[Rfam]
RNA sequence: AGACCAUCCAGAGCGGCUGAGAGACCUGGCUCGUUGAAGCCGCAGCAACCACCCCGCCGGGGCCGGUGCUACUGCCAGGACCGAUGGAGA
Number, nucleotide and partner (000 for none) at each position: 001a000002g000003a000004c087005c086006a085007u084008c083009c000010a000011g000012a000013g043014c042015g041016g040017c039018u000019g000020a000021g032022a031023g030024a000025c000026c078027u077028g076029g075030c023031u022032c021033g000034u000035u000036g000037a000038a000039g017040c016041c015042g014043c013044a070045g069046c068047a067048a000049c066050c065051a000052c061053c060054c059055c000056g000057c000058c000059g054060g053061g052062g000063c000064c000065g050066g049067u047068g046069c045070u044071a000072c000073u000074g082075c029076c028077a027078g026079g000080a000081c000082c074083g008084a007085u006086g005087g004088a000089g000090a000
Background: Rfam assigns this 90-nucleotide sequence from Arthrobacter sp. NamB2 to the family "SAM riboswitch aptamer (S box leader)". Pairs were carried over by alignment from the consensus structure, which is taken from published work. Lineage of the source: Bacteria > Bacillati > Actinomycetes > Micrococcales > Arthrobacter.